[Rfam]
RNA sequence: UCUGGAUCAAUGAUGCAACUAAUACUGCGUUAUCUUUCUGCAACCUUUAUGGUGCUGAAGAAAUCAUUACUUGCUGAGAUCUAUA
Numbered sequence: 001u002c003u004g005g006a007u008c009a010a011u012g013a014u015g016c017a018a019c020u021a022a023u024a025c026u027g028c029g030u031u032a033u034c035u036u037u038c039u040g041c042a043a044c045c046u047u048u049a050u051g052g053u054g055c056u057g058a059a060g061a062a063a064u065c066a067u068u069a070c071u072u073g074c075u076g077a078g079a080u081c082u083a084u085a
Base pairs, nucleotide, nucleotide: 001085003083004082005081006080007079
The family of this 85-nucleotide RNA sequence from Eragrostis curvula is "Small nucleolar RNA snoR27". Its family is annotated with nucleolus and RNA processing in the Gene Ontology. Pairs were carried over by alignment from the consensus structure, which was predicted with WAR. For this family Rfam cites "Multiple snoRNA gene clusters from Arabidopsis" (Brown et al., RNA, 2001).